[Rfam]
RNA sequence: GAGCAAUGAUGAAAAGAUUUUACUGUGGAUCUUUAUGAAGGUUUCUACACUUGAUCUGAGCUCA
Numbered sequence: 001g002a003g004c005a006a007u008g009a010u011g012a013a014a015a016g017a018u019u020u021u022a023c024u025g026u027g028g029a030u031c032u033u034u035a036u037g038a039a040g041g042u043u044u045c046u047a048c049a050c051u052u053g054a055u056c057u058g059a060g061c062u063c064a
Stems, first nucleotide, its partner, number of pairs: 001063004013034007